[Rfam]
RNA sequence: UCUCCCGCUUCACCUCCCUGAGCGGGUGCCUUAAUCAAGUUAAGGCGUUUCUGCCCCCGGUUUUUCUCCCCUUUAGCCGGGGGCACUUCUUUU
Numbered sequence: 001u002c003u004c005c006c007g008c009u010u011c012a013c014c015u016c017c018c019u020g021a022g023c024g025g026g027u028g029c030c031u032u033a034a035u036c037a038a039g040u041u042a043a044g045g046c047g048u049u050u051c052u053g054c055c056c057c058c059g060g061u062u063u064u065u066c067u068c069c070c071c072u073u074u075a076g077c078c079g080g081g082g083g084c085a086c087u088u089c090u091u092u093u
Stems, first nucleotide, its partner, number of pairs: 004026006028046007053084010
Dot-bracket structure: ...((((((...........)))))).(((((((.....)))))))......((((((((((............)))))))))).........
RNA: Burkholderia RNA 7 (anti-hemB)